Rfam assigns this 260-nucleotide sequence from Pseudomonas sp. GV071 to the family "rne-II RNA". It is annotated as a cis-regulatory element. The match comes from Rfam's covariance-model search (217 bits). Lineage of the source: Bacteria > Pseudomonadota > Pseudomonadales > Pseudomonadaceae > Pseudomonas.
[Rfam]
RNA sequence: AUACGUGUAGGGUGGAGAUGCACAACCUCGGACUGCGUAGCUUUAGAAGACGUGUUAUUUCGUCCGCUCCCGUUGGUUGAUUCCUCCUCCUGACCAAGUGCUUGUUUCACAACAGCAAGCAGGAGACGUCCGUCGCCACCCCGGCCCCGUUGGCCGGCGUUGUUAGACAUGGAACGACUUACAACCGUUUCUGACGAGCCCUGACACCGACCCUGAGAGUCGUGUGUGCCGAACGCCGUUUCCGGCAGCCCGGAAACCGA
Numbered sequence: 001a002u003a004c005g006u007g008u009a010g011g012g013u014g015g016a017g018a019u020g021c022a023c024a025a026c027c028u029c030g031g032a033c034u035g036c037g038u039a040g041c042u043u044u045a046g047a048a049g050a051c052g053u054g055u056u057a058u059u060u061c062g063u064c065c066g067c068u069c070c071c072g073u074u075g076g077u078u079g080a081u082u083c084c085u086c087c088u089c090c091u092g093a094c095c096a097a098g099u100g101c102u103u104g105u106u107u108c109a110c111a112a113c114a115g116c117a118a119g120c121a122g123g124a125g126a127c128g129u130c131c132g133u134c135g136c137c138a139c140c141c142c143g144g145c146c147c148c149g150u151u152g153g154c155c156g157g158c159g160u161u162g163u164u165a166g167a168c169a170u171g172g173a174a175c176g177a178c179u180u181a182c183a184a185c186c187g188u189u190u191c192u193g194a195c196g197a198g199c200c201c202u203g204a205c206a207c208c209g210a211c212c213c214u215g216a217g218a219g220u221c222g223u224g225u226g227u228g229c230c231g232a233a234c235g236c237c238g239u240u241u242c243c244g245g246c247a248g249c250c251c252g253g254a255a256a257c258c259g260a
Stems, first nucleotide, its partner, number of pairs: 014087004023079005029072003035067003049064004088124005127196004132168003135163002138160001142156005171191006204227004208222004238257007
Dot-bracket structure: .............((((.....(((((.(((...(((...........((((........)))))))..)))..)))))....))))(((((...........................)))))..((((.(((((.(...(((((.....)))))...).))..)))..((((((.........)))))).)))).......((((((((.......)))).))))..........(((((((......)))))))...